[Rfam]
RNA sequence: GAAGCUAGAAAAGCGCCAGAGCUUGUCGGUUAUCGAGGGCGGUUGACGGAUAACGGAAGUCCGUGCAGCAGCAGCAUUCUCGCUCGAUACAGGCGGCAAGCUGACGAGGUGGAGGUGUUCGGAACGUUCGGCGGGGACCUCCCGGCCCGCAUCGGGGCCGUCAAGUCGGAAGACAAAUCGCUCAGGGCAACCGGGCGGCCAAUAUUCCGAAGAAGAUGAGA
Numbered sequence: 001g002a003a004g005c006u007a008g009a010a011a012a013g014c015g016c017c018a019g020a021g022c023u024u025g026u027c028g029g030u031u032a033u034c035g036a037g038g039g040c041g042g043u044u045g046a047c048g049g050a051u052a053a054c055g056g057a058a059g060u061c062c063g064u065g066c067a068g069c070a071g072c073a074g075c076a077u078u079c080u081c082g083c084u085c086g087a088u089a090c091a092g093g094c095g096g097c098a099a100g101c102u103g104a105c106g107a108g109g110u111g112g113a114g115g116u117g118u119u120c121g122g123a124a125c126g127u128u129c130g131g132c133g134g135g136g137a138c139c140u141c142c143c144g145g146c147c148c149g150c151a152u153c154g155g156g157g158c159c160g161u162c163a164a165g166u167c168g169g170a171a172g173a174c175a176a177a178u179c180g181c182u183c184a185g186g187g188c189a190a191c192c193g194g195g196c197g198g199c200c201a202a203u204a205u206u207c208c209g210a211a212g213a214a215g216a217u218g219a220g221a
Base pairs, nucleotide, nucleotide: 020102021101022100023099024098025097026096027095111142112141113140114139115138119131120130121129122128143160144159145158146157147156148155166210167209168208169207170206171205179197180196181195182194183193185192186191
Notes:
Shown here is a 221-nucleotide sequence from Cohnella fermenti, a member of the family "glmS glucosamine-6-phosphate activated ribozyme aptamer". The match comes from Rfam's covariance-model search (74 bits). Gene Ontology terms of the family: catalytic activity and regulation of gene expression. NCBI's taxonomy places the organism under Bacteria, Bacillati, Caryophanales, Paenibacillaceae, Cohnella. By type it is a riboswitch.